[Rfam]
RNA sequence: CACCAGCAUCAAGAGAGGGCGUAAGCCCCGCCAACCAGCCCUGACCGGGCAACGGUGGUCUAAGGAUGCGGCUCGUUGCCAAUAAUACGGUCGUCU
Numbered sequence: 001c002a003c004c005a006g007c008a009u010c011a012a013g014a015g016a017g018g019g020c021g022u023a024a025g026c027c028c029c030g031c032c033a034a035c036c037a038g039c040c041c042u043g044a045c046c047g048g049g050c051a052a053c054g055g056u057g058g059u060c061u062a063a064g065g066a067u068g069c070g071g072c073u074c075g076u077u078g079c080c081a082a083u084a085a086u087a088c089g090g091u092c093g094u095c096u
Stems, first nucleotide, its partner, number of pairs: 006069005015029001017028004030059003035055002038050003043091001045089001071080001073078001
Shown here is a 96-nucleotide RNA sequence, a member of the family "SAM-I/IV (S-adenosyl methionine) riboswitch aptamer". The sequence is in the family's curated seed alignment. Pairs were carried over by alignment from the consensus structure, which is taken from published work. Clan: SAM clan.